Rfam assigns this 97-nucleotide RNA from Brachybacterium muris to the family "TPP riboswitch aptamer (THI element)". The base pairs follow the family's consensus structure, which is taken from published work. Its family is annotated with thiamine pyrophosphate binding in the Gene Ontology. The source organism's lineage runs through Bacteria, Bacillati, Micrococcales, Brachybacterium and Brachybacterium muris.
RNA sequence: GUGAAUGACGCGGGGUGCCGUGCUGGUACGGCUGAGAUCACACCCGUUGAACCUGAUCUAGUUCGUACUAGCGAAGGGAACGUCGCCGAUGUCGGCA
Number, nucleotide and partner (000 for none) at each position: 001g000002u000003g000004a000005a000006u085007g084008a083009c082010g081011c046012g045013g044014g043015g000016u040017g032018c031019c030020g029021u028022g000023c000024u000025g000026g000027u000028a021029c020030g019031g018032c017033u000034g000035a000036g000037a000038u000039c000040a016041c000042a000043c014044c013045c012046g011047u000048u000049g000050a000051a000052c077053c076054u075055g000056a000057u000058c071059u070060a069061g068062u000063u000064c000065g000066u000067a000068c061069u060070a059071g058072c000073g000074a000075a054076g053077g052078g000079a000080a000081c010082g009083u008084c007085g006086c000087c000088g000089a000090u000091g000092u000093c000094g000095g000096c000097a000